[Rfam]
RNA sequence: UAUGAAAUUGAUAGUUUCACUCAUAUAAUCGCAGGGAUAUGGCCUGCAAGUUUCUACCGGAUUGCCGUAAAUAAUCCGACUAUGAGUGGGCAAUGGGAAGAC
Numbered sequence: 001u002a003u004g005a006a007a008u009u010g011a012u013a014g015u016u017u018c019a020c021u022c023a024u025a026u027a028a029u030c031g032c033a034g035g036g037a038u039a040u041g042g043c044c045u046g047c048a049a050g051u052u053u054c055u056a057c058c059g060g061a062u063u064g065c066c067g068u069a070a071a072u073a074a075u076c077c078g079a080c081u082a083u084g085a086g087u088g089g090g091c092a093a094u095g096g097g098a099a100g101a102c
Stems, first nucleotide, its partner, number of pairs: 018088008029049001031047005058078007